The record is a 130-nucleotide RNA sequence from Teladorsagia circumcincta, which matches "Caenorhabditis snoRNA ceN80" in Rfam. The literature on the family includes a 2007 paper in BMC Mol Biol by Jia et al., "Systematic identification of non-coding RNA 2,2,7-trimethylguanosine cap structures in Caenorhabditis elegans". The base pairs follow the family's consensus structure, which was predicted with RNAalifold.
[Rfam]
RNA sequence: UCGCGUCUGCAAGGGACAGCUCCGCCUUGUGGCACGAGUUGUAUAAUGCUGGCGCAAUAACGUAGAGACGUACAUUGUUGCUUGCGAUACGCAUACAUGCUCUUGCAAGUGUCAAAUACUUCCCACAUUU
Dot-bracket structure: ..(((((.(((....(((((...(((....)))....)))))....))).))))).........(.((.(((...((.((((((((...((......))....)))))))).))..))).)).)......